mir-2 microRNA precursor family: a 65-nucleotide RNA sequence from Tribolium castaneum. Gene Ontology terms of the family: RISC complex and miRNA-mediated post-transcriptional gene silencing. NCBI's taxonomy places the organism under Eukaryota, Arthropoda, Mandibulata, Pterygota, Tribolium.
RNA sequence: CAAGUCGUCAAUUUGGUUGUGAACUCUUAAUUUAAACGAUAUCACAGCCACUUUGAUGAGCUUGG
Numbered sequence: 001c002a003a004g005u006c007g008u009c010a011a012u013u014u015g016g017u018u019g020u021g022a023a024c025u026c027u028u029a030a031u032u033u034a035a036a037c038g039a040u041a042u043c044a045c046a047g048c049c050a051c052u053u054u055g056a057u058g059a060g061c062u063u064g065g
Base pairs, nucleotide, nucleotide: 005059006058007057008056009055010054011053014050015049016048017047018046019045020044021043022042025041027039